[Rfam]
RNA sequence: AUGCGGCACAGAGGCGCGGAUUUCAUCAGUAUAUUCCCUUUUAUGCCAGCCAAAGGCUUGUGGGGAAUGGAAAGGGACGUCCGCCGAAGGCGGUGCACGGCACGCAUCGUUCCUGGGCCCGCAGCCGAACAGGGGCGGGACUGUCACGUUAGGAUUAACGUGUUGCGCUGUGCUCAUG
Numbered sequence: 001a002u003g004c005g006g007c008a009c010a011g012a013g014g015c016g017c018g019g020a021u022u023u024c025a026u027c028a029g030u031a032u033a034u035u036c037c038c039u040u041u042u043a044u045g046c047c048a049g050c051c052a053a054a055g056g057c058u059u060g061u062g063g064g065g066a067a068u069g070g071a072a073a074g075g076g077a078c079g080u081c082c083g084c085c086g087a088a089g090g091c092g093g094u095g096c097a098c099g100g101c102a103c104g105c106a107u108c109g110u111u112c113c114u115g116g117g118c119c120c121g122c123a124g125c126c127g128a129a130c131a132g133g134g135g136c137g138g139g140a141c142u143g144u145c146a147c148g149u150u151a152g153g154a155u156u157a158a159c160g161u162g163u164u165g166c167g168c169u170g171u172g173c174u175c176a177u178g
Base pairs, nucleotide, nucleotide: 006173007172008171009170010169011168016084017083018082019081020080021079023077024076032069033068034067035066036065037064038063039062088114089113090112091109092108093107094106095105096104115142116141118139119138120137121136122135125132145162146161147160148159149158150157
Notes
Lysine riboswitch aptamer: a 178-nucleotide sequence from Subdoligranulum sp. APC924/74. A reference for the family is Sudarsan et al. (2003), "An mRNA structure in bacteria that controls gene expression by binding lysine", Genes Dev. A search with the family's covariance model found it, with a score of 95 bits. Rfam links the family to the GO term lysine biosynthetic process.